This 134-nucleotide sequence from Castor canadensis belongs to the Rfam family "Small nucleolar RNA SNORA51". It scores 110 bits against the family's covariance model. Pairs were carried over by alignment from the consensus structure, which was predicted with PFOLD. Rfam classes the family as an H/ACA-box small nucleolar RNA.
RNA sequence: CACCUCCUGAUGCUUAUCAUAGGCUGUGUUCUUACACUGACUGUAAAGAUACAUAGGAGGAAAAGUAAACCUACCCCAUAUACACAUAAACCCAGGCCGUGUACCUGGUCUGUAUUGUAAAUGGAAAGACAUGG
Numbered sequence: 001c002a003c004c005u006c007c008u009g010a011u012g013c014u015u016a017u018c019a020u021a022g023g024c025u026g027u028g029u030u031c032u033u034a035c036a037c038u039g040a041c042u043g044u045a046a047a048g049a050u051a052c053a054u055a056g057g058a059g060g061a062a063a064a065g066u067a068a069a070c071c072u073a074c075c076c077c078a079u080a081u082a083c084a085c086a087u088a089a090a091c092c093c094a095g096g097c098c099g100u101g102u103a104c105c106u107g108g109u110c111u112g113u114a115u116u117g118u119a120a121a122u123g124g125a126a127a128g129a130c131a132u133g134g
Stems, first nucleotide, its partner, number of pairs: 003060006020043003026037004076124004089111001092108005